[Rfam]
RNA sequence: CAAGUACUGGUCUCAGCAGAUUGAGGAGGGUACUACAGUAGUCACCACGCAGUCCGCUGAGAUUAGAGCUGC
Numbered sequence: 001c002a003a004g005u006a007c008u009g010g011u012c013u014c015a016g017c018a019g020a021u022u023g024a025g026g027a028g029g030g031u032a033c034u035a036c037a038g039u040a041g042u043c044a045c046c047a048c049g050c051a052g053u054c055c056g057c058u059g060a061g062a063u064u065a066g067a068g069c070u071g072c
Base pairs, nucleotide, nucleotide: 003070004069005068007066008065009064010063011062012061013060014059015058016057017056019054020053021052022051023050025046026045028043029042031040032039033038
Background: The family of this 72-nucleotide RNA sequence from Pan troglodytes is "mir-622 microRNA precursor family". Its family is annotated with miRNA-mediated post-transcriptional gene silencing and RISC complex in the Gene Ontology. Taxonomically the source falls in Pan (Eukaryota, Metazoa, Tetrapoda, Euarchontoglires). Pairs were carried over by alignment from the consensus structure, which was predicted with RNAalifold. Rfam 15.1 lists 453 matches to the family in 28 species. It scores 89 bits against the family's covariance model.